The family of this 174-nucleotide RNA from Bacillus sp. MUM 116 is "Guanidine-I riboswitch aptamer". This family represents a conserved RNA structure found upstream of the ykkC and yxkD genes in Bacillus subtilis and related genes in other bacteria. A reference for the family is Barrick et al. (2004), "New RNA motifs suggest an expanded scope for riboswitches in bacterial genetic control", Proc Natl Acad Sci U S A. It scores 77 bits against the family's covariance model. The pairing is the family consensus, mapped onto this sequence.

RNA sequence: UAAAAAGUUUUCUAGGGUUCCGUGGCUAUUUGCCAGUCUGGUCCGAGAGGAAACGCACCAUCUAAGAAAACGGUUGUGUAGGUAUGCCGAUGAAGUCAAAAAAGGACUUCACCGUCAGACCUGUAAGCUGCUUCCGCUUUUCGGUGUACACGGAAGGAUAAAAGCCUGGGAGAU
Numbered sequence: 001u002a003a004a005a006a007g008u009u010u011u012c013u014a015g016g017g018u019u020c021c022g023u024g025g026c027u028a029u030u031u032g033c034c035a036g037u038c039u040g041g042u043c044c045g046a047g048a049g050g051a052a053a054c055g056c057a058c059c060a061u062c063u064a065a066g067a068a069a070a071c072g073g074u075u076g077u078g079u080a081g082g083u084a085u086g087c088c089g090a091u092g093a094a095g096u097c098a099a100a101a102a103a104g105g106a107c108u109u110c111a112c113c114g115u116c117a118g119a120c121c122u123g124u125a126a127g128c129u130g131c132u133u134c135c136g137c138u139u140u141u142c143g144g145u146g147u148a149c150a151c152g153g154a155a156g157g158a159u160a161a162a163a164g165c166c167u168g169g170g171a172g173a174u
Stems, first nucleotide, its partner, number of pairs: 007054006015044002020041002022038001023035004055147005149169001151172001155167003